[Rfam]
RNA: Fluoride riboswitch aptamer (crcB RNA motif)
Organism: Mycobacterium marinum
RNA sequence: ACUAGCAGCGGCGAUGGGGCUCGCCAGGAAGCUCGACUUCUGAACCGCCAGCCGGCUGAUGGCACCUGCGAACAA
Numbered sequence: 001a002c003u004a005g006c007a008g009c010g011g012c013g014a015u016g017g018g019g020c021u022c023g024c025c026a027g028g029a030a031g032c033u034c035g036a037c038u039u040c041u042g043a044a045c046c047g048c049c050a051g052c053c054g055g056c057u058g059a060u061g062g063c064a065c066c067u068g069c070g071a072a073c074a075a
Base pairs, nucleotide, nucleotide: 010025011024012023013022016066017065019063020062021061047056048055049054